Shown here is a 110-nucleotide RNA from Pimelobacter simplex, a member of the family "TPP riboswitch aptamer (THI element)". The literature on the family includes a 2008 paper in J Am Chem Soc by Thore et al., "Structural basis of thiamine pyrophosphate analogues binding to the eukaryotic riboswitch". It scores 55 bits against the family's covariance model.
RNA sequence: ACGACCACCCACGGGAGUCCGCGGCAGCGGGCUGAGAGGGAGCUGGAGCCGCUCCGACCGUCACACCUGAUCCGGAUCAUGCCGGCGAAGGAACGGACCUGAUGAGCGCA
Numbered sequence: 001a002c003g004a005c006c007a008c009c010c011a012c013g014g015g016a017g018u019c020c021g022c023g024g025c026a027g028c029g030g031g032c033u034g035a036g037a038g039g040g041a042g043c044u045g046g047a048g049c050c051g052c053u054c055c056g057a058c059c060g061u062c063a064c065a066c067c068u069g070a071u072c073c074g075g076a077u078c079a080u081g082c083c084g085g086c087g088a089a090g091g092a093a094c095g096g097a098c099c100u101g102a103u104g105a106g107c108g109c110a
Base pairs, nucleotide, nucleotide: 008096009095011061012060013059014058017032018031019030020029021028039055040054041053042052043051066091067090068089072085073084074083075082

Lineage of the source: Bacteria > Bacillati > Actinomycetota > Propionibacteriales > Pimelobacter. Rfam describes the family as follows. Vitamin B(1) in its active form thiamin pyrophosphate (TPP) is an essential coenzyme that is synthesised by coupling of pyrimidine and thiazole moieties in bacteria. Pairs were carried over by alignment from the consensus structure, which is taken from published work.